[Rfam]
Shown here is a 266-nucleotide sequence from Clostridium sp. HMP27, a member of the family "Bacterial large signal recognition particle RNA".
The family's consensus secondary structure is taken from published work.
The family is grouped with related families in Rfam's "SRP clan".
The family's RNA type in Rfam is non-coding RNA gene.
Taxonomically the source falls in Clostridium (Bacteria, Bacillota, Clostridia, Eubacteriales).
The signal recognition particle (SRP) is a universally conserved ribonucleoprotein involved in the co-translational targeting of proteins to membranes.
A search with the family's covariance model found it, with a score of 225 bits.
RNA sequence: CCGUGCUAGAUGGGGAGUUAGCGGUGCCCUGUAACCUGCAAUCCGCUAUAGCAGGAUUGAAUUCCUCGCUUAGGCUAUAACUUGUGAGGUCUGACCUAUGCAAGUGACGUUGAGAGCUGGGUCCCACGCAACGGAAACUCAUGAACCCCGUGAGGUCUGGAAGGAAGCAGCGGUAAGUGAUAAUUUCCGUGUGCCGUGGAUUAACCUGGCUUGAGUUAACUGUAUAGGUAACGCUCAUAGGUUAUUUGCCAAGGCGAGGUGCACGG
Numbered sequence: 001c002c003g004u005g006c007u008a009g010a011u012g013g014g015g016a017g018u019u020a021g022c023g024g025u026g027c028c029c030u031g032u033a034a035c036c037u038g039c040a041a042u043c044c045g046c047u048a049u050a051g052c053a054g055g056a057u058u059g060a061a062u063u064c065c066u067c068g069c070u071u072a073g074g075c076u077a078u079a080a081c082u083u084g085u086g087a088g089g090u091c092u093g094a095c096c097u098a099u100g101c102a103a104g105u106g107a108c109g110u111u112g113a114g115a116g117c118u119g120g121g122u123c124c125c126a127c128g129c130a131a132c133g134g135a136a137a138c139u140c141a142u143g144a145a146c147c148c149c150g151u152g153a154g155g156u157c158u159g160g161a162a163g164g165a166a167g168c169a170g171c172g173g174u175a176a177g178u179g180a181u182a183a184u185u186u187c188c189g190u191g192u193g194c195c196g197u198g199g200a201u202u203a204a205c206c207u208g209g210c211u212u213g214a215g216u217u218a219a220c221u222g223u224a225u226a227g228g229u230a231a232c233g234c235u236c237a238u239a240g241g242u243u244a245u246u247u248g249c250c251a252a253g254g255c256g257a258g259g260u261g262c263a264c265g266g
Base pairs, nucleotide, nucleotide: 001266002265003264004263005262006261009058010057011056012030013029014028015027017025018024019023035055036054037053038052039051064259065258066257067256068255069254070253073250074249075248077246079243080242081241082240083239084238085237086236087235088234092230093229096227097226098225099224100223101222104220105219106217107216108215114212115211116210117209118208119207120206121205122204124199125198126197127196128195129191130190132189133188134187135186136185139180140179141178142177148173149172150171151170156165157164158163